[Rfam]
RNA sequence: UCCUUAUUGAGAGUGGUGGAGGGAAUAGGCCCAAUGAAACCCGGCAACCGGUACGGACGGUUUAGCCUUGCGCAGUGCGCAGGGUGAUGACUCGUGGCGUAAAAAGGUGCUAAAUCCUACAGUCGCGGCUUUAGUGACUGAGAGAUGAGGU
Numbered sequence: 001u002c003c004u005u006a007u008u009g010a011g012a013g014u015g016g017u018g019g020a021g022g023g024a025a026u027a028g029g030c031c032c033a034a035u036g037a038a039a040c041c042c043g044g045c046a047a048c049c050g051g052u053a054c055g056g057a058c059g060g061u062u063u064a065g066c067c068u069u070g071c072g073c074a075g076u077g078c079g080c081a082g083g084g085u086g087a088u089g090a091c092u093c094g095u096g097g098c099g100u101a102a103a104a105a106g107g108u109g110c111u112a113a114a115u116c117c118u119a120c121a122g123u124c125g126c127g128g129c130u131u132u133a134g135u136g137a138c139u140g141a142g143a144g145a146u147g148a149g150g151u
Stems, first nucleotide, its partner, number of pairs: 002150007013042001015041003021032003026119004043111004048107002052101004115143001120140006
SAM riboswitch aptamer (S box leader): a 151-nucleotide RNA sequence from Acidaminobacter hydrogenoformans. The match comes from Rfam's covariance-model search (69 bits).